The family of this 164-nucleotide sequence from Rhodococcus gordoniae is "c-di-AMP riboswitch aptamer (ydaO/yuaA leader)". Its family is annotated with regulation of gene expression and cyclic-di-AMP binding in the Gene Ontology.
[Rfam]
RNA sequence: GCACGGUUACCGCCUAAUCGCCCCUCCCCGGCUUCGGGAGUGGCGAGCCGGGGACCCACGUAGUUCUUGGGGUGAAUCUCCUCCGCCCGUCGCGGCGAGGAGUAGGGCUGAUCUUCCGGCCCGAACCCGUCAGCUAACUCGGUCGGCGGGUGAACGGAAGAAAC
Numbered sequence: 001g002c003a004c005g006g007u008u009a010c011c012g013c014c015u016a017a018u019c020g021c022c023c024c025u026c027c028c029c030g031g032c033u034u035c036g037g038g039a040g041u042g043g044c045g046a047g048c049c050g051g052g053g054a055c056c057c058a059c060g061u062a063g064u065u066c067u068u069g070g071g072g073u074g075a076a077u078c079u080c081c082u083c084c085g086c087c088c089g090u091c092g093c094g095g096c097g098a099g100g101a102g103u104a105g106g107g108c109u110g111a112u113c114u115u116c117c118g119g120c121c122c123g124a125a126c127c128c129g130u131c132a133g134c135u136a137a138c139u140c141g142g143u144c145g146g147c148g149g150g151u152g153a154a155c156g157g158a159a160g161a162a163a164c
Base pairs, nucleotide, nucleotide: 011148012147013146014145018046019045020044021043022042047143048142049141050140051139052138057069058068070128071127072126078102079101080100081099082098083097105122106121107120108119
Description:
It scores 83 bits against the family's covariance model. Taxonomically the source falls in Rhodococcus (Bacteria, Bacillati, Actinomycetes, Mycobacteriales).